Annotation
Rfam assigns this 80-nucleotide RNA from Bacillus sp. FJAT-26390 to the family "ZMP/ZTP riboswitch aptamer (pfl RNA motif)". On this family, see Jones and Ferre-D'Amare, Nat Struct Mol Biol 2015: "Recognition of the bacterial alarmone ZMP through long-distance association of two RNA subdomains". Rfam 15.1 lists 3,295 matches to the family in 2,545 species. Rfam links the family to the GO terms regulation of purine nucleotide biosynthetic process and one-carbon metabolic process.

RNA sequence: UCUGGUAUGUGCGACUGGCGUAAACGUGGAUAACCACGAGGAAGCACUUAUUUAUAUCGCCGUACGCCUGGGCAAAGUAU
Number, nucleotide and partner (000 for none) at each position: 001u000002c000003u000004g052005g051006u050007a049008u000009g047010u046011g045012c044013g000014a000015c041016u040017g068018g067019c066020g065021u064022a000023a000024a000025c000026g037027u036028g035029g034030a000031u000032a000033a000034c029035c028036a027037c026038g000039a000040g016041g015042a000043a000044g012045c011046a010047c009048u000049u007050a006051u005052u004053u000054a000055u000056a000057u075058c000059g073060c072061c071062g000063u000064a021065c020066g019067c018068c017069u000070g000071g061072g060073c059074a000075a057076a000077g000078u000079a000080u000